Rfam assigns this 80-nucleotide sequence from Pasteurellaceae bacterium 15-036681 to the family "Aggregatibacter sRNA 20". The family's RNA type in Rfam is small RNA. About the family: Validated by RT-PCR and Northern blot. For this family Rfam cites "Small RNA repertoires and their intraspecies variation in Aggregatibacter actinomycetemcomitans" (Oogai et al., DNA Res, 2017).
[Rfam]
RNA sequence: AUAAAAAGUGUUGUGUCCAACAACCAAUUUCAUAAAUUUGCUUUCCGAGUAGCCCCUAUUUUAGGGGCUUUUUUUAUGGG
Numbered sequence: 001a002u003a004a005a006a007a008g009u010g011u012u013g014u015g016u017c018c019a020a021c022a023a024c025c026a027a028u029u030u031c032a033u034a035a036a037u038u039u040g041c042u043u044u045c046c047g048a049g050u051a052g053c054c055c056c057u058a059u060u061u062u063a064g065g066g067g068c069u070u071u072u073u074u075u076a077u078g079g080g
Stems, first nucleotide, its partner, number of pairs: 001075001003073006022042001024040001026038003053067006
Dot-bracket structure: (.((((((.............(.(.(((.......))).).)..........((((((...)))))))))))).).....